Rfam assigns this 145-nucleotide RNA from Sorghum bicolor to the family "Small nucleolar RNA snoR136". The literature on the family includes a 2009 paper in Nucleic Acids Res by Chen and Wu, "Mining small RNA sequencing data: a new approach to identify small nucleolar RNAs in Arabidopsis". Lineage of the source: Eukaryota > Streptophyta > Tracheophyta > Liliopsida > Sorghum.

[Rfam]
RNA sequence: UUGUCUGGCUUCUCUUGAAUUCAUUGUGUCUGUGAGCCUCUGUGGUUUGUGGGCAGUAUCAAGAAUGUGAAGCAAAAUGAAAUGUUCCUCUCGCUAUCCAGCGCGGAAUUCUUUUGAUGCGAUUGGACGUCGAGGAACUACACUU
Numbered sequence: 001u002u003g004u005c006u007g008g009c010u011u012c013u014c015u016u017g018a019a020u021u022c023a024u025u026g027u028g029u030c031u032g033u034g035a036g037c038c039u040c041u042g043u044g045g046u047u048u049g050u051g052g053g054c055a056g057u058a059u060c061a062a063g064a065a066u067g068u069g070a071a072g073c074a075a076a077a078u079g080a081a082a083u084g085u086u087c088c089u090c091u092c093g094c095u096a097u098c099c100a101g102c103g104c105g106g107a108a109u110u111c112u113u114u115u116g117a118u119g120c121g122a123u124u125g126g127a128c129g130u131c132g133a134g135g136a137a138c139u140a141c142a143c144u145u
Stems, first nucleotide, its partner, number of pairs: 001076002003073002008068002011065001013063001016061002027055007036046003084138007092129002097127005107115001
The family has 8 seed sequences and 452 matches in Rfam 15.1.